Rfam assigns this 136-nucleotide RNA sequence from Pauljensenia hongkongensis to the family "c-di-AMP riboswitch aptamer (ydaO/yuaA leader)". From the family's description: This family represents a conserved RNA structure found upstream of the ydaO and yuaA genes in Bacillus subtilis and related genes in other bacteria. The base pairs follow the family's consensus structure.

RNA sequence: AGGCGCGGUACACCUCGGUCCAACGCGGGGGAACCACAUUCGGUUCACACGAACCUUGGGGUGAAGCUCGGGGAACCGAGCCGGGCGUCCCGCCCGAAUCCGACAGCUGACCUCGCAGGCAUAACAGGGAGAACAU
Numbered sequence: 001a002g003g004c005g006c007g008g009u010a011c012a013c014c015u016c017g018g019u020c021c022a023a024c025g026c027g028g029g030g031g032a033a034c035c036a037c038a039u040u041c042g043g044u045u046c047a048c049a050c051g052a053a054c055c056u057u058g059g060g061g062u063g064a065a066g067c068u069c070g071g072g073g074a075a076c077c078g079a080g081c082c083g084g085g086c087g088u089c090c091c092g093c094c095c096g097a098a099u100c101c102g103a104c105a106g107c108u109g110a111c112c113u114c115g116c117a118g119g120c121a122u123a124a125c126a127g128g129g130a131g132a133a134c135a136u
Base pairs, nucleotide, nucleotide: 003024025116026115027114028113029112030111035058036057059101060100061099067080068079069078070077083095084094085093086092